[Rfam]
RNA sequence: ACCCGAUGAGAACCAAACCUGUGGCAGGAACGGGGGAACCAAUUCCGGGCGUCGAACGCAGGCGUCCUAGGGGUGAAGCCACCAGCGGUGGCCGGGCAUUCCCAGCCCGAACCCGACAGCUCACCUCGCAGGCGUGGGGAAGGGCACUA
Numbered sequence: 001a002c003c004c005g006a007u008g009a010g011a012a013c014c015a016a017a018c019c020u021g022u023g024g025c026a027g028g029a030a031c032g033g034g035g036g037a038a039c040c041a042a043u044u045c046c047g048g049g050c051g052u053c054g055a056a057c058g059c060a061g062g063c064g065u066c067c068u069a070g071g072g073g074u075g076a077a078g079c080c081a082c083c084a085g086c087g088g089u090g091g092c093c094g095g096g097c098a099u100u101c102c103c104a105g106c107c108c109g110a111a112c113c114c115g116a117c118a119g120c121u122c123a124c125c126u127c128g129c130a131g132g133c134g135u136g137g138g139g140a141a142g143g144g145c146a147c148u149a
Stems, first nucleotide, its partner, number of pairs: 013132002019028002031128005040070001071114003079091004094108004
c-di-AMP riboswitch aptamer (ydaO/yuaA leader): a 149-nucleotide RNA sequence from Frankia canadensis.
The match comes from Rfam's covariance-model search (67 bits).
NCBI's taxonomy places the organism under Bacteria, Bacillati, Actinomycetota, Actinomycetes, Frankia.
Rfam's curators write: This family represents a conserved RNA structure found upstream of the ydaO and yuaA genes in Bacillus subtilis and related genes in other bacteria.